This 58-nucleotide RNA from Ziziphus jujuba belongs to the Rfam family "Plastid-psbA-3 3UTR RNA".
Rfam's curators write: Plastid psbA-3 is a non-coding RNA (ncRNA) present in plastids. It was identified in inverted repeat sequences in the 3 prime untranslate region (3UTR) of photosystem II quinone-binding protein (psbA).
It scores 49 bits against the family's covariance model.
The literature on the family includes a 2023 paper in Plant Commun by Richter et al., "Retrograde signaling in plants: A critical review focusing on the GUN pathway and beyond".
The family is grouped with related families in Rfam's "Plastid-psbA 3UTR RNA clan".
Pairs were carried over by alignment from the consensus structure, which was predicted with LocARNA.

RNA sequence: AAAGGACCAAUAAUCAAUUUCUUAUUCUAGCAAGAAGUUUGGUAUUGCUCCUUUAGGA
Numbered sequence: 001a002a003a004g005g006a007c008c009a010a011u012a013a014u015c016a017a018u019u020u021c022u023u024a025u026u027c028u029a030g031c032a033a034g035a036a037g038u039u040u041g042g043u044a045u046u047g048c049u050c051c052u053u054u055a056g057g058a
Stems, first nucleotide, its partner, number of pairs: 001054006008047005014041001019036005